[Rfam]
RNA sequence: AUGUUUGGUGGUCCCUGAGAAUGCUCCGACAUCUUCGAAGUAGCGUAGCUGUCGAGCACCAUUGGGGACCAGCGGAUU
Numbered sequence: 001a002u003g004u005u006u007g008g009u010g011g012u013c014c015c016u017g018a019g020a021a022u023g024c025u026c027c028g029a030c031a032u033c034u035u036c037g038a039a040g041u042a043g044c045g046u047a048g049c050u051g052u053c054g055a056g057c058a059c060c061a062u063u064g065g066g067g068a069c070c071a072g073c074g075g076a077u078u
Stems, first nucleotide, its partner, number of pairs: 003077005009071010022058005028053003033048002036045002
RNA: mir-237 microRNA precursor family
Organism: Caenorhabditis briggsae